[Rfam]
Rfam assigns this 130-nucleotide sequence from Triplophysa tibetana to the family "Small nucleolar RNA SNORA77". For this family Rfam cites "A computational screen for mammalian pseudouridylation guide H/ACA RNAs" (Schattner et al., RNA, 2006). A search with the family's covariance model found it, with a score of 58 bits. It is annotated as an H/ACA-box small nucleolar RNA. Rfam describes the family as follows. ACA63 (SNORA77) is a member of the H/ACA class of snoRNAs that guide the sites of modification of uridines to pseudouridines. This snoRNA was identified by computational screening and its expression in mouse experimentally verified by Northern blot and primer extension analysis. ACA63 is proposed to guide the pseudouridylation of 18S rRNA U814. Pairs were carried over by alignment from the consensus structure, which was predicted with RNAalifold.
RNA sequence: GCAGAUUUACUCUGUUUGAGGCCGAAACAUCCGGCCUUAAACUUUUUCUGUCUGCUACAGUAACAUUGAGAAUGUUAUGAAGCACCUUGCUAUUCACUUUGCAGGGGAUAGUAUCUUCUCAGACAUUUGU
Dot-bracket structure: ((((((.......(((((((.(((.......))).))))))).......))))))...........(((((..(.(((....(.((.................)).)...))).).))))).........